[Rfam]
RNA sequence: UUCUUAUCCAGAGAGGCGGAGGGACAGGCCCAAUGAAGCCCGGCAACCGGUUCGUCUGAAGCAAUCGCUUUAGACGGGCGGCAUGGUGCCAAUUCCUUCAGGUAUCCGAAUACCUGACAGAUGAGAA
Numbered sequence: 001u002u003c004u005u006a007u008c009c010a011g012a013g014a015g016g017c018g019g020a021g022g023g024a025c026a027g028g029c030c031c032a033a034u035g036a037a038g039c040c041c042g043g044c045a046a047c048c049g050g051u052u053c054g055u056c057u058g059a060a061g062c063a064a065u066c067g068c069u070u071u072a073g074a075c076g077g078g079c080g081g082c083a084u085g086g087u088g089c090c091a092a093u094u095c096c097u098u099c100a101g102g103u104a105u106c107c108g109a110a111u112a113c114c115u116g117a118c119a120g121a122u123g124a125g126a127a
Base pairs, nucleotide, nucleotide: 001127002126003125004124005123006122007121008120013041015040016039017038021031022030023029026097027096028095042090043089044088045087047086048085049082094119099116100115101114102113103112104111
RNA: SAM riboswitch aptamer (S box leader)